[Rfam]
RNA sequence: UCAAAAAAAGGGCAAAAUUAGAGGAAUCUAAUGACGCAAAACUAUAGGGCCUAAAACAAAAUUAAGGUAGCCAGUUGCUAGU
Numbered sequence: 001u002c003a004a005a006a007a008a009a010g011g012g013c014a015a016a017a018u019u020a021g022a023g024g025a026a027u028c029u030a031a032u033g034a035c036g037c038a039a040a041a042c043u044a045u046a047g048g049g050c051c052u053a054a055a056a057c058a059a060a061a062u063u064a065a066g067g068u069a070g071c072c073a074g075u076u077g078c079u080a081g082u
Stems, first nucleotide, its partner, number of pairs: 012037002017032006040076004047072002049068003056062001
The record is an 82-nucleotide RNA from Acholeplasma oculi, which matches "c-di-GMP-I riboswitch aptamer" in Rfam. Pairs were carried over by alignment from the consensus structure, which is taken from published work. GEMM was predicted in a large-scale screen for bacterial structured RNA regulatory elements. It scores 66 bits against the family's covariance model.